[Rfam]
RNA: Glycine riboswitch aptamer
Organism: Variovorax terrae
RNA sequence: ACGUCCCCCCCUGGAGAGAGGCCGCUGCGCGCAGCGGCCCACCGAAGGAGCAAGCCGCAGUCUGCCCAUGUCGUCCAUGGCGGGCCCGGUGAAUCUCUCAGGUAAAGCGGACAGCGGGGCAAGC
Numbered sequence: 001a002c003g004u005c006c007c008c009c010c011c012u013g014g015a016g017a018g019a020g021g022c023c024g025c026u027g028c029g030c031g032c033a034g035c036g037g038c039c040c041a042c043c044g045a046a047g048g049a050g051c052a053a054g055c056c057g058c059a060g061u062c063u064g065c066c067c068a069u070g071u072c073g074u075c076c077a078u079g080g081c082g083g084g085c086c087c088g089g090u091g092a093a094u095c096u097c098u099c100a101g102g103u104a105a106a107g108c109g110g111a112c113a114g115c116g117g118g119g120c121a122a123g124c
Stems, first nucleotide, its partner, number of pairs: 006119004011114003020039007041103003044099002048097003054090004